[Rfam]
Rfam assigns this 49-nucleotide RNA sequence from Yoonia vestfoldensis to the family "SAM/SAH riboswitch aptamer". Gene Ontology terms of the family: regulation of gene expression and S-adenosylmethionine metabolic process. Taxonomically the source falls in Yoonia vestfoldensis (Bacteria, Pseudomonadati, Rhodobacterales, Yoonia).

RNA sequence: GUUCUGUCACAACGGCUUCCUGGCGUGACAGGUUUUUCAUAUCGGAGCA
Numbered sequence: 001g002u003u004c005u006g007u008c009a010c011a012a013c014g015g016c017u018u019c020c021u022g023g024c025g026u027g028a029c030a031g032g033u034u035u036u037u038c039a040u041a042u043c044g045g046a047g048c049a
Stems, first nucleotide, its partner, number of pairs: 004031007013022002015048003019045002